RNA sequence: AUCAACACAAACCGGAGCCUCCACCAUGUGCUCAAUAUGAGGAGUGUGGACGUUGGGUGAAACCCUACUGUAAAUCAGCGGGAUAGAGCGAAAGACAAAGACCGGAAACAAACUAAAGCGCCCUUAGCGACGCUUUAGUUUU
Numbered sequence: 001a002u003c004a005a006c007a008c009a010a011a012c013c014g015g016a017g018c019c020u021c022c023a024c025c026a027u028g029u030g031c032u033c034a035a036u037a038u039g040a041g042g043a044g045u046g047u048g049g050a051c052g053u054u055g056g057g058u059g060a061a062a063c064c065c066u067a068c069u070g071u072a073a074a075u076c077a078g079c080g081g082g083a084u085a086g087a088g089c090g091a092a093a094g095a096c097a098a099a100g101a102c103c104g105g106a107a108a109c110a111a112a113c114u115a116a117a118g119c120g121c122c123c124u125u126a127g128c129g130a131c132g133c134u135u136u137a138g139u140u141u142u
Stems, first nucleotide, its partner, number of pairs: 002050002005047004014022002031041004052096003056065002066083001068081004110141011122129001

Description: sraL Hfq binding RNA: a 142-nucleotide sequence from Salmonella enterica. About the family: The SraL RNA ('sra' for small RNA), discovered in E. coli, and later in Salmonella Tiphimurium. It is expressed only in stationary phase. It may possibly play a role in Salmonella virulence. The family's consensus secondary structure was predicted with RNAalifold. For this family Rfam cites "An RpoS-dependent sRNA regulates the expression of a chaperone involved in protein folding" (Silva et al., RNA, 2013). It is annotated as a small RNA.